[Rfam]
RNA sequence: CUGUAACCCCUGCCCUCACCCCAGCGGGUUUUCAUCUCAGUGAUAUGACGCAUUCAAACCAUUUCUUAUCACCGGGUGUAAAUCAGCUAGAGUGUGGGCGCGGGUA
Numbered sequence: 001c002u003g004u005a006a007c008c009c010c011u012g013c014c015c016u017c018a019c020c021c022c023a024g025c026g027g028g029u030u031u032u033c034a035u036c037u038c039a040g041u042g043a044u045a046u047g048a049c050g051c052a053u054u055c056a057a058a059c060c061a062u063u064u065c066u067u068a069u070c071a072c073c074g075g076g077u078g079u080a081a082a083u084c085a086g087c088u089a090g091a092g093u094g095u096g097g098g099c100g101c102g103g104g105u106a
Stems, first nucleotide, its partner, number of pairs: 015096001017094003021090001023088003027084005033078004038074001040072006